[Rfam]
RNA sequence: AGCCUGCAUCAAGAGUUGGGCUCGCCCAACGCCAACCUGCUUCCCGAGCAAGGUGGCGCCCCGUCGGGGGGAUGCGGCCGCGACGGCAACGAAACGGGUGAGC
Number, nucleotide and partner (000 for none) at each position: 001a000002g000003c000004c000005u000006g075007c074008a073009u072010c071011a000012a000013g000014a000015g030016u029017u028018g027019g026020g025021c000022u000023c000024g000025c020026c019027c018028a017029a016030c015031g057032c056033c055034a000035a000036c053037c052038u051039g049040c048041u047042u000043c000044c098045c097046g000047a041048g040049c039050a000051a038052g037053g036054u000055g033056g032057c031058g000059c000060c000061c000062c000063g000064u000065c000066g000067g000068g000069g000070g000071g010072a009073u008074g007075c006076g000077g087078c086079c085080g084081c000082g000083a000084c080085g079086g078087c077088a000089a000090c000091g000092a000093a000094a000095c000096g000097g045098g044099u000100g000101a000102g000103c000
This 103-nucleotide sequence from Caulobacter radicis belongs to the Rfam family "SAM-I/IV (S-adenosyl methionine) riboswitch aptamer".
Its Rfam clan is "SAM clan".
A reference for the family is Weinberg et al. (2008), "The aptamer core of SAM-IV riboswitches mimics the ligand-binding site of SAM-I riboswitches", RNA.
The base pairs follow the family's consensus structure, which is taken from published work.